[Rfam]
RNA sequence: CCGUGCCGACCUGAUCCGAGCCGAUGAAGUGGAUGUGGGUAUCCACCCCGCCCGCCGUCAGGAUCUUGUGCUCCCCGGCGAUCACCUCGGUCGCGGCGCCGAUCAGGAUGUCCACGCCGUCCAUCACGUCGGGGUUCCCGGCCUUGCCGAGCGCGCUGAUCCGGCCGUCCACGAUGCCGACAUCGGCUUUGAAGACACCGGUGUGGUCGAUGAUCAGGGCAUUGGUGAUCACGGUGUCCACGACGCCGUCGCCGCGAGUCAGCCGGCCGUUGUGGCCCAUCCCGUCGCGG
Numbered sequence: 001c002c003g004u005g006c007c008g009a010c011c012u013g014a015u016c017c018g019a020g021c022c023g024a025u026g027a028a029g030u031g032g033a034u035g036u037g038g039g040u041a042u043c044c045a046c047c048c049c050g051c052c053c054g055c056c057g058u059c060a061g062g063a064u065c066u067u068g069u070g071c072u073c074c075c076c077g078g079c080g081a082u083c084a085c086c087u088c089g090g091u092c093g094c095g096g097c098g099c100c101g102a103u104c105a106g107g108a109u110g111u112c113c114a115c116g117c118c119g120u121c122c123a124u125c126a127c128g129u130c131g132g133g134g135u136u137c138c139c140g141g142c143c144u145u146g147c148c149g150a151g152c153g154c155g156c157u158g159a160u161c162c163g164g165c166c167g168u169c170c171a172c173g174a175u176g177c178c179g180a181c182a183u184c185g186g187c188u189u190u191g192a193a194g195a196c197a198c199c200g201g202u203g204u205g206g207u208c209g210a211u212g213a214u215c216a217g218g219g220c221a222u223u224g225g226u227g228a229u230c231a232c233g234g235u236g237u238c239c240a241c242g243a244c245g246c247c248g249u250c251g252c253c254g255c256g257a258g259u260c261a262g263c264c265g266g267c268c269g270u271u272g273u274g275g276c277c278c279a280u281c282c283c284g285u286c287g288c289g290g
Base pairs, nucleotide, nucleotide: 001290002289003288007287008286009285012158013157015155017153018076020074023071031052032051034050035049037048038047039046040045057069058068077148078147081144085140090138093135094134095130096129097128101125102124106122107121108120109119110117111116164276165275166274167273172272173271174270175269176268177266178265186220187219188218189217190216191215201208223261224260225259230254234252235251236250